A member of the RNA family "mir-729 microRNA precursor family" from Cyprinodon variegatus, 80 nucleotides long. NCBI's taxonomy places the organism under Eukaryota, Chordata, Craniata, Actinopterygii, Cyprinodon. It scores 62 bits against the family's covariance model.
[Rfam]
RNA sequence: UCCGUCUGAGCUGAGGCUGUAUCGUAACCAGGCUGUGAACAGGUCAAGCAUGGGUAUGAUACGACCUCAGUUCGGAGGGG
Numbered sequence: 001u002c003c004g005u006c007u008g009a010g011c012u013g014a015g016g017c018u019g020u021a022u023c024g025u026a027a028c029c030a031g032g033c034u035g036u037g038a039a040c041a042g043g044u045c046a047a048g049c050a051u052g053g054g055u056a057u058g059a060u061a062c063g064a065c066c067u068c069a070g071u072u073c074g075g076a077g078g079g080g
Stems, first nucleotide, its partner, number of pairs: 001076003008073009018063009028053003032049002034046002